[Rfam]
This 75-nucleotide sequence from Hibiscus trionum belongs to the Rfam family "Small nucleolar RNA Z105". Rfam 15.1 lists 621 matches to the family in 204 species. It is annotated as a C/D-box small nucleolar RNA. Pairs were carried over by alignment from the consensus structure, which was predicted with CMfinder.
RNA sequence: AAGGCAUAAUGAUGAAGAAUUUACAUACAAAAAGUCUGACCUUUGUGAUGAUCAGUAUCCUCCUACUCAUUCUGA
Numbered sequence: 001a002a003g004g005c006a007u008a009a010u011g012a013u014g015a016a017g018a019a020u021u022u023a024c025a026u027a028c029a030a031a032a033a034g035u036c037u038g039a040c041c042u043u044u045g046u047g048a049u050g051a052u053c054a055g056u057a058u059c060c061u062c063c064u065a066c067u068c069a070u071u072c073u074g075a
Base pairs, nucleotide, nucleotide: 006070007069009067033052036047